[Rfam]
RNA sequence: ACCUUAUCAAGAGCGACUGAGGGACAGGCCCGAUGAAGUCCGGCAACCAUAGCCACUGGUGUAUGGUGCUAAUUCCUGCAGAACGAAGGUUCUGGAAGAUGAGGA
Numbered sequence: 001a002c003c004u005u006a007u008c009a010a011g012a013g014c015g016a017c018u019g020a021g022g023g024a025c026a027g028g029c030c031c032g033a034u035g036a037a038g039u040c041c042g043g044c045a046a047c048c049a050u051a052g053c054c055a056c057u058g059g060u061g062u063a064u065g066g067u068g069c070u071a072a073u074u075c076c077u078g079c080a081g082a083a084c085g086a087a088g089g090u091u092c093u094g095g096a097a098g099a100u101g102a103g104g105a
Stems, first nucleotide, its partner, number of pairs: 002104007013041001015040003021031003025078004042070004047066002049062003074097001079094006
Dot-bracket structure: .(((((((....(.(((...(((.[[[[)))......))))((((.(((((........)))..))))))...(]]]]((((((....))))))..)))))))).